[Rfam]
The record is a 66-nucleotide RNA sequence from Collichthys lucidus, which matches "Small nucleolar RNA SNORD58" in Rfam. The source organism's lineage runs through Eukaryota, Metazoa, Actinopterygii, Sciaenidae and Collichthys. On this family, see Kiss-Laszlo et al., Cell 1996: "Site-specific ribose methylation of preribosomal RNA: a novel function for small nucleolar RNAs". It is annotated as a C/D-box small nucleolar RNA. Rfam's curators write: snoRNA U58 is found in introns 1, 3 and 6 of the ribosomal protein RPL17 gene in humans. The base pairs follow the family's consensus structure, which was predicted with PFOLD.
RNA sequence: CUGCAGUGAUGACUUCUUAGGACACCUUUGGAUUCUCCAUGAAAACAAACUAAUGAUCUGAGCAGC
Numbered sequence: 001c002u003g004c005a006g007u008g009a010u011g012a013c014u015u016c017u018u019a020g021g022a023c024a025c026c027u028u029u030g031g032a033u034u035c036u037c038c039a040u041g042a043a044a045a046c047a048a049a050c051u052a053a054u055g056a057u058c059u060g061a062g063c064a065g066c
Stems, first nucleotide, its partner, number of pairs: 001065004